Source information: Small nucleolar RNA SNORD35: a 78-nucleotide sequence from Esox lucius. Its family is annotated with nucleolus and RNA processing in the Gene Ontology. Lineage of the source: Eukaryota > Gnathostomata > Teleostei > Osteoglossocephalai > Esox. It is annotated as a C/D-box small nucleolar RNA. Pairs were carried over by alignment from the consensus structure, which was predicted with PFOLD.
RNA sequence: UGCAAAUGAUGUUUUUCUCACGAUGGUCUUCCGAGCUGUUCUGACGACAACGCCUUAUGGCAUUACUGAUGCAACCCA
Numbered sequence: 001u002g003c004a005a006a007u008g009a010u011g012u013u014u015u016u017c018u019c020a021c022g023a024u025g026g027u028c029u030u031c032c033g034a035g036c037u038g039u040u041c042u043g044a045c046g047a048c049a050a051c052g053c054c055u056u057a058u059g060g061c062a063u064u065a066c067u068g069a070u071g072c073a074a075c076c077c078a
Base pairs, nucleotide, nucleotide: 001073002072003071004070